[Rfam]
RNA sequence: AGUCGAUGAUGUAUGAUUUGUCCGUACCAUCCGAAGAUUUCUUCUAUUAUGAGUAAUCAAAUCUCCUUAUCUGAGGCUU
Numbered sequence: 001a002g003u004c005g006a007u008g009a010u011g012u013a014u015g016a017u018u019u020g021u022c023c024g025u026a027c028c029a030u031c032c033g034a035a036g037a038u039u040u041c042u043u044c045u046a047u048u049a050u051g052a053g054u055a056a057u058c059a060a061a062u063c064u065c066c067u068u069a070u071c072u073g074a075g076g077c078u079u
Base pairs, nucleotide, nucleotide: 001078002077003076004075